[Rfam]
RNA sequence: GUAUCGGUGACGAUACUUCGGAAGGAAGCCGUCCUGCUGAGGCAGGGCACCACAAAAGUACGGGAUGACGUACAGGAAUCGAGUAUAAGGCGCACAUACCGGGACGAGCCUGCACAACAAGGUAAAGUCCUCUAUCCAUCACAGGGUAUGUCCGUAAACUCGGCAUUCACGUACUGAAAGGCAUGUGU
Numbered sequence: 001g002u003a004u005c006g007g008u009g010a011c012g013a014u015a016c017u018u019c020g021g022a023a024g025g026a027a028g029c030c031g032u033c034c035u036g037c038u039g040a041g042g043c044a045g046g047g048c049a050c051c052a053c054a055a056a057a058g059u060a061c062g063g064g065a066u067g068a069c070g071u072a073c074a075g076g077a078a079u080c081g082a083g084u085a086u087a088a089g090g091c092g093c094a095c096a097u098a099c100c101g102g103g104a105c106g107a108g109c110c111u112g113c114a115c116a117a118c119a120a121g122g123u124a125a126a127g128u129c130c131u132c133u134a135u136c137c138a139u140c141a142c143a144g145g146g147u148a149u150g151u152c153c154g155u156a157a158a159c160u161c162g163g164c165a166u167u168c169a170c171g172u173a174c175u176g177a178a179a180g181g182c183a184u185g186u187g188u
Stems, first nucleotide, its partner, number of pairs: 001016006045188001047186003053180001057175006063168005079163006090155003094151007102130004108123004